[Rfam]
RNA sequence: UUUCAUGAUGAUUCCAAUUUUUAUAAGCAUAGUUCAACUGAAGGUCUCCGGAUCCUGAACGACAACCUUUCCAUCUUUCACCUUUUUUCUGAAA
Numbered sequence: 001u002u003u004c005a006u007g008a009u010g011a012u013u014c015c016a017a018u019u020u021u022u023a024u025a026a027g028c029a030u031a032g033u034u035c036a037a038c039u040g041a042a043g044g045u046c047u048c049c050g051g052a053u054c055c056u057g058a059a060c061g062a063c064a065a066c067c068u069u070u071c072c073a074u075c076u077u078u079c080a081c082c083u084u085u086u087u088u089c090u091g092a093a094a
Base pairs, nucleotide, nucleotide: 007018009016010015032060033059034058035057036056043054044053045052046051
Dot-bracket structure: ......(.((....)).).............(((((......((((....)))).)))))..................................